[Rfam]
RNA sequence: AGCUGUAAUGGCUCAAGUGAUGGAGUCCACCUCCCUCGCAAUGCGUGCCUAUCCAACCCGGCGGCGUGUGCCCAGUUCGAAUUUGGUGGUGGCUGUCCACUCGCUUCGGCAACGAGCGAUUGCUGGUGCAACCCUAAGCUUCUGAGGAAACCUUCAGCCGAGUAAUCGGGCAGAGAACUUCAGGCCAUGAAAUGGCGGUAUUGGAAUACACACGCUGUCGGCGGCACCCAGGGUAAGAUUUCUGGGGUGGAUAACGUUUUUGUU
Numbered sequence: 001a002g003c004u005g006u007a008a009u010g011g012c013u014c015a016a017g018u019g020a021u022g023g024a025g026u027c028c029a030c031c032u033c034c035c036u037c038g039c040a041a042u043g044c045g046u047g048c049c050u051a052u053c054c055a056a057c058c059c060g061g062c063g064g065c066g067u068g069u070g071c072c073c074a075g076u077u078c079g080a081a082u083u084u085g086g087u088g089g090u091g092g093c094u095g096u097c098c099a100c101u102c103g104c105u106u107c108g109g110c111a112a113c114g115a116g117c118g119a120u121u122g123c124u125g126g127u128g129c130a131a132c133c134c135u136a137a138g139c140u141u142c143u144g145a146g147g148a149a150a151c152c153u154u155c156a157g158c159c160g161a162g163u164a165a166u167c168g169g170g171c172a173g174a175g176a177a178c179u180u181c182a183g184g185c186c187a188u189g190a191a192a193u194g195g196c197g198g199u200a201u202u203g204g205a206a207u208a209c210a211c212a213c214g215c216u217g218u219c220g221g222c223g224g225c226a227c228c229c230a231g232g233g234u235a236a237g238a239u240u241u242c243u244g245g246g247g248u249g250g251a252u253a254a255c256g257u258u259u260u261u262g263u264u
Base pairs, nucleotide, nucleotide: 001013002012003011016261017260019258020257021256022255025252026251027250028249029248030247031246033233034232035231042230043229045227046226047225048224049223058221059220060219062217063216064215065214066213067212068211069210070209072204073203074202075201076200077198078197079196081193082192083191084190086188087187088186089185091133094130095129096128097126098125099124101119102118103117104116105115107114108113134138141184142183143182144181145180146179147178152175153174154173159168160167161166
RNA: Fungal signal recognition particle RNA
Organism: Dissoconium aciculare